[Rfam]
RNA sequence: CAAGGUCAAGGCCAUAGCAAAAGCACUCAUGGCGUGGCCUGUCAGAUUCCAAUGAAUCUGUGACUUCUGCU
Dot-bracket structure: .........((((..[[[[.[[((.........))))))...(((((((....)))))))....]].]]]]
Numbered sequence: 001c002a003a004g005g006u007c008a009a010g011g012c013c014a015u016a017g018c019a020a021a022a023g024c025a026c027u028c029a030u031g032g033c034g035u036g037g038c039c040u041g042u043c044a045g046a047u048u049c050c051a052a053u054g055a056a057u058c059u060g061u062g063a064c065u066u067c068u069g070c071u
Stems, first nucleotide, its partner, number of pairs: 010039004016071004021066002023035002043060007
A member of the RNA family "Mammalian CPEB3 ribozyme" from Alligator mississippiensis, 71 nucleotides long.